[Rfam]
RNA sequence: UUCUGCUGAUGACUUCUUGAUAGUGCCACGUGUCUGGGCCACUGAGUCCUCGUGAUGGACCUGAGGAUUUGAGGAA
Number, nucleotide and partner (000 for none) at each position: 001u076002u075003c074004u073005g000006c000007u000008g000009a000010u000011g000012a000013c000014u000015u000016c000017u000018u000019g000020a000021u000022a000023g000024u000025g000026c000027c000028a000029c000030g000031u000032g000033u000034c000035u000036g000037g000038g000039c000040c000041a000042c000043u000044g000045a000046g000047u000048c000049c000050u000051c000052g000053u000054g000055a000056u000057g000058g000059a000060c000061c000062u000063g000064a000065g000066g000067a000068u000069u000070u000071g000072a000073g004074g003075a002076a001